[Rfam]
RNA sequence: GGACAUAAACGCGCUCGUAAUAAGCGGAUCGGACCCGGGGGCGGUACCCGGCGGCUCCACCAUCAUUCGCCUUCGUUGGGGGGAUAUGGGGCCGAAACAGGAUCGACGAACGUCUAAAAGGGUUUGCUUUGUCCCGGUGAGCGACCACCGUUAUCGGUGCAAAUUGUACAGUUGCCAACGACAACCGUGCUCCGGUGGCUCUGGCUGCGUAA
Numbered sequence: 001g002g003a004c005a006u007a008a009a010c011g012c013g014c015u016c017g018u019a020a021u022a023a024g025c026g027g028a029u030c031g032g033a034c035c036c037g038g039g040g041g042c043g044g045u046a047c048c049c050g051g052c053g054g055c056u057c058c059a060c061c062a063u064c065a066u067u068c069g070c071c072u073u074c075g076u077u078g079g080g081g082g083g084a085u086a087u088g089g090g091g092c093c094g095a096a097a098c099a100g101g102a103u104c105g106a107c108g109a110a111c112g113u114c115u116a117a118a119a120g121g122g123u124u125u126g127c128u129u130u131g132u133c134c135c136g137g138u139g140a141g142c143g144a145c146c147a148c149c150g151u152u153a154u155c156g157g158u159g160c161a162a163a164u165u166g167u168a169c170a171g172u173u174g175c176c177a178a179c180g181a182c183a184a185c186c187g188u189g190c191u192c193c194g195g196u197g198g199c200u201c202u203g204g205c206u207g208c209g210u211a212a
Base pairs, nucleotide, nucleotide: 001134002133003132004131005130013123014122015121016120025112026111029109030108031107035051036050037049038048039047052094053093054092055091056090057089058088135150136149137148138147
A member of the RNA family "permuted transfer-messenger RNA" from Paracoccus isoporae, 212 nucleotides long.
Rfam links the family to the GO term RNA catabolic process.
The organism belongs to Paracoccus, within Bacteria.
About the family: Bacterial tmRNA, also known as 10Sa RNA or SsrA, is named for its dual tRNA and mRNA-like properties.
The match comes from Rfam's covariance-model search (148 bits).
The literature on the family includes a 1996 paper in RNA by Williams and Bartel, "Phylogenetic analysis of tmRNA secondary structure".